[Rfam]
RNA: MIR473 microRNA precursor family
RNA sequence: AUUGCUCACUCUCCCUCAAGGGCUUCUGAAUUGGCCUGUUCCAAAGGCUAAGUCAGAGGUUCUUGGGGAGAGUGGAUAA
Numbered sequence: 001a002u003u004g005c006u007c008a009c010u011c012u013c014c015c016u017c018a019a020g021g022g023c024u025u026c027u028g029a030a031u032u033g034g035c036c037u038g039u040u041c042c043a044a045a046g047g048c049u050a051a052g053u054c055a056g057a058g059g060u061u062c063u064u065g066g067g068g069a070g071a072g073u074g075g076a077u078a079a
Base pairs, nucleotide, nucleotide: 006075007074008073009072010071011070012069013068014067015066017065018064019063020062021061022060023059024058025057026056